M-box riboswitch aptamer (ykoK leader): a 167-nucleotide sequence from Clostridiales bacterium PH28_bin88. A reference for the family is Barrick et al. (2004), "New RNA motifs suggest an expanded scope for riboswitches in bacterial genetic control", Proc Natl Acad Sci U S A. The family has 159 seed sequences and 1,095 matches in Rfam 15.1. The organism belongs to Eubacteriales, within Bacteria. The match comes from Rfam's covariance-model search (155 bits).

RNA sequence: CAUUUGCUUCGUUAGGUGAGGCUCCUGUACGGAAACAGGUCGCUACCCGGAAACAUCGAAAGAUGCCAAUGGGUUAACAGGUAUUACCGGAUUAAGGUUCUACCUAAUGCGGCUGGGAAAUCCCCCUUACGCCGUGCAGUGCUAAAGCUCAACGAGUGGAGAGAACA
Number, nucleotide and partner (000 for none) at each position: 001c000002a000003u000004u000005u163006g000007c161008u160009u159010c158011g153012u152013u095014a000015g149016g148017u147018g000019a000020g143021g142022c141023u000024c000025c139026u138027g137028u136029a135030c134031g133032g132033a000034a000035a000036c000037a000038g000039g113040u112041c111042g110043c109044u000045a074046c073047c072048c071049g070050g000051a000052a000053a000054c065055a064056u063057c062058g000059a000060a000061a000062g057063a056064u055065g054066c000067c000068a000069a000070u049071g048072g047073g046074u045075u000076a000077a000078c000079a000080g104081g103082u102083a101084u000085u000086a098087c097088c096089g000090g000091a000092u000093u000094a000095a013096g088097g087098u086099u000100c000101u083102a082103c081104c080105u000106a000107a000108u000109g043110c042111g041112g040113c039114u000115g127116g126117g125118a000119a000120a000121u000122c000123c000124c000125c117126c116127u115128u000129a000130c000131g000132c032133c031134g030135u029136g028137c027138a026139g025140u000141g022142c021143u020144a000145a000146a000147g017148c016149u015150c000151a000152a012153c011154g000155a000156g000157u000158g010159g009160a008161g007162a000163g005164a000165a000166c000167a000